Shown here is a 109-nucleotide sequence from Azotobacter vinelandii, a member of the family "Pseudomon-Rho RNA". The organism belongs to Azotobacter vinelandii, within Bacteria. The family's consensus secondary structure is taken from published work.
RNA sequence: UUCGGCUCUCGCAGCGAAUCUAUCUUUAUCGCUGUCCUCCGUCAGUCGUCGCCGACGCACCUCUUUUAGAACAAGUACAGCGAUCCGAUCGCCUUCCCUGCGGCGCGGC
Numbered sequence: 001u002u003c004g005g006c007u008c009u010c011g012c013a014g015c016g017a018a019u020c021u022a023u024c025u026u027u028a029u030c031g032c033u034g035u036c037c038u039c040c041g042u043c044a045g046u047c048g049u050c051g052c053c054g055a056c057g058c059a060c061c062u063c064u065u066u067u068a069g070a071a072c073a074a075g076u077a078c079a080g081c082g083a084u085c086c087g088a089u090c091g092c093c094u095u096c097c098c099u100g101c102g103g104c105g106c107g108g109c
Base pairs, nucleotide, nucleotide: 011035012034013033014032015031016030045109046108047107048106050105051104052103053102054101080092081091082090083089084088